[Rfam]
ZMP/ZTP riboswitch aptamer (pfl RNA motif): an 85-nucleotide sequence from Demequina activiva.
The base pairs follow the family's consensus structure, which is taken from published work.
Lineage of the source: Bacteria > Bacillati > Actinomycetota > Demequinaceae > Demequina.

RNA sequence: GGCGCGCGUCGCGACUGGCGCAGUGGGUCACCACGAGGGAGCGGCACUCUUCUAGGACUGUUGGUCGUACGCCUGGGCCAAGGUC
Numbered sequence: 001g002g003c004g005c006g007c008g009u010c011g012c013g014a015c016u017g018g019c020g021c022a023g024u025g026g027g028u029c030a031c032c033a034c035g036a037g038g039g040a041g042c043g044g045c046a047c048u049c050u051u052c053u054a055g056g057a058c059u060g061u062u063g064g065u066c067g068u069a070c071g072c073c074u075g076g077g078c079c080a081a082g083g084u085c
Base pairs, nucleotide, nucleotide: 004049006047008045009044010043011042012041015038016037017073018072019071020070023034024033025032026031062080063079064078065077066076